A member of the RNA family "c-di-GMP-I riboswitch aptamer" from Clostridium sp. Maddingley MBC34-26, 90 nucleotides long.
RNA sequence: AAAUGAUACUAGCACACUUAUUGAAAGGUAAGGUCGCAAAGCCGUGAGUCUAAGGAAAAUAUUAUUUUCUAUGAUCGUCAGGUUGCCAAA
Number, nucleotide and partner (000 for none) at each position: 001a000002a000003a000004u000005g000006a000007u000008a000009c000010u000011a000012g037013c036014a000015c000016a000017c032018u031019u030020a029021u028022u027023g000024a000025a000026a000027g022028g021029u020030a019031a018032g017033g000034u000035c000036g013037c012038a000039a000040a084041g083042c082043c081044g000045u080046g079047a078048g075049u074050c073051u000052a000053a000054g000055g069056a068057a067058a066059a065060u064061a000062u000063u000064a060065u059066u058067u057068u056069c055070u000071a000072u000073g050074a049075u048076c000077g000078u047079c046080a045081g043082g042083u041084u040085g000086c000087c000088a000089a000090a000